[Rfam]
RNA sequence: AUCAGAUAAAGGCAAACCUAUUGAAAAAUAGCGACGCAAAGUCACAGAUCUAAUGUUAAACCAACGAUGAUGGCUGGACUGCCAGA
Numbered sequence: 001a002u003c004a005g006a007u008a009a010a011g012g013c014a015a016a017c018c019u020a021u022u023g024a025a026a027a028a029u030a031g032c033g034a035c036g037c038a039a040a041g042u043c044a045c046a047g048a049u050c051u052a053a054u055g056u057u058a059a060a061c062c063a064a065c066g067a068u069g070a071u072g073g074c075u076g077g078a079c080u081g082c083c084a085g086a
Stems, first nucleotide, its partner, number of pairs: 012037002018031005040080004045076003048071003055065003
RNA: c-di-GMP-I riboswitch aptamer
Organism: Bacillus sp. OK048